[Rfam]
RNA sequence: AUGCACCAGAUACGGACCCGAAUGUCCUCAGCCCAGUGCACACUGGUGCCUGACUUCCUGACAGUUGGGUUUUAAGAAAGGUGCUACAGAAACAUCAGUUCUGAUAUUUAAGCUCAUGAGUGUGACGGUGCACUCUUGAGUUAUGGCUCAGAGGCACAGGG
Numbered sequence: 001a002u003g004c005a006c007c008a009g010a011u012a013c014g015g016a017c018c019c020g021a022a023u024g025u026c027c028u029c030a031g032c033c034c035a036g037u038g039c040a041c042a043c044u045g046g047u048g049c050c051u052g053a054c055u056u057c058c059u060g061a062c063a064g065u066u067g068g069g070u071u072u073u074a075a076g077a078a079a080g081g082u083g084c085u086a087c088a089g090a091a092a093c094a095u096c097a098g099u100u101c102u103g104a105u106a107u108u109u110a111a112g113c114u115c116a117u118g119a120g121u122g123u124g125a126c127g128g129u130g131c132a133c134u135c136u137u138g139a140g141u142u143a144u145g146g147c148u149c150a151g152a153g154g155c156a157c158a159g160g161g
Stems, first nucleotide, its partner, number of pairs: 003084005015071004020066002023063004028053004032048001033046005098155003118133001120131004134152002137150005
This 161-nucleotide sequence from Hucho hucho belongs to the Rfam family "Small Cajal body specific RNA 1". The source organism's lineage runs through Eukaryota, Metazoa, Neopterygii, Salmoninae and Hucho. It scores 50 bits against the family's covariance model. For this family Rfam cites "Cajal body-specific small nuclear RNAs: a novel class of 2'-O-methylation and pseudouridylation guide RNAs" (Darzacq et al., EMBO J, 2002). From the family's description: scaRNAs are a specific class of small nuclear RNAs which localise to the Cajal bodies and guide the modification of RNA polymerase II transcribed spliceosomal RNAs U1, U2, U4, U5 and U12. ACA35 belong to the H/ACA box class of guide RNAs as it has the predicted hairpin-hinge-hairpin-tail structure, conserved H/ACA-box motifs and is found associated with GAR1. It is predicted to guide pseudouridylation of the U2 spliceosomal snRNA at residue U89. Pairs were carried over by alignment from the consensus structure, which was predicted with RNAalifold.